[Rfam]
RNA sequence: UGUCCGAGCCACGUUAAAUAGACAAUGACCAUCAAUGCUAUGAUUGGACCUAUAUAAAUUCCAUAUUUCGCAUCUUGAUAGGAAUCUGUACACUGAUUUACCAUUCAUUUGCAGAGCCGUUUUGUGCGAUUACAACC
Dot-bracket structure: .(((((((...((((.(.(........)...).))))...)..))))))..................(((((........((...(((.(.(.(............)).).)))..))......)))))........
Numbered sequence: 001u002g003u004c005c006g007a008g009c010c011a012c013g014u015u016a017a018a019u020a021g022a023c024a025a026u027g028a029c030c031a032u033c034a035a036u037g038c039u040a041u042g043a044u045u046g047g048a049c050c051u052a053u054a055u056a057a058a059u060u061c062c063a064u065a066u067u068u069c070g071c072a073u074c075u076u077g078a079u080a081g082g083a084a085u086c087u088g089u090a091c092a093c094u095g096a097u098u099u100a101c102c103a104u105u106c107a108u109u110u111g112c113a114g115a116g117c118c119g120u121u122u123u124g125u126g127c128g129a130u131u132a133c134a135a136c137c
Stems, first nucleotide, its partner, number of pairs: 002049006008041001012037004017032001019028001068129005081118002086114003090110001092108001094107001